[Rfam]
RNA sequence: GGUUCUAUGCCACGUCGUCGAUAGCUCCACGGCAGUGACCAACAAUGCUAUGAUUUAACCAAAAACAAGUUUUUUCACAUCUUGAUAGGAAUCUGUUCAUCUUUUUUCUAUAGAUUUACAGAGCUGUUUUGGGUGAUUACAUUU
Numbered sequence: 001g002g003u004u005c006u007a008u009g010c011c012a013c014g015u016c017g018u019c020g021a022u023a024g025c026u027c028c029a030c031g032g033c034a035g036u037g038a039c040c041a042a043c044a045a046u047g048c049u050a051u052g053a054u055u056u057a058a059c060c061a062a063a064a065a066c067a068a069g070u071u072u073u074u075u076c077a078c079a080u081c082u083u084g085a086u087a088g089g090a091a092u093c094u095g096u097u098c099a100u101c102u103u104u105u106u107u108c109u110a111u112a113g114a115u116u117u118a119c120a121g122a123g124c125u126g127u128u129u130u131g132g133g134u135g136a137u138u139a140c141a142u143u144u
Stems, first nucleotide, its partner, number of pairs: 002059003007054002009051001013047003017043002020040001022038001024033003075136004088125002093121003099115003
Dot-bracket structure: .(((..(((...(((.((.(.(.(((....)))....).).)).)))...).))..)))...............((((.........((...(((...(((...........)))...)))..)).......))))........
This 144-nucleotide sequence from Cucumis sativus belongs to the Rfam family "Small nucleolar RNA snoR2/U65". On this family, see Shaw et al., J Cell Sci 1998: "Localization and processing from a polycistronic precursor of novel snoRNAs in maize". Lineage of the source: Eukaryota > Viridiplantae > Magnoliopsida > Pentapetalae > Cucumis. The family is grouped with related families in Rfam's "SNORA65 clan". The family's RNA type in Rfam is H/ACA-box small nucleolar RNA. The match comes from Rfam's covariance-model search (104 bits).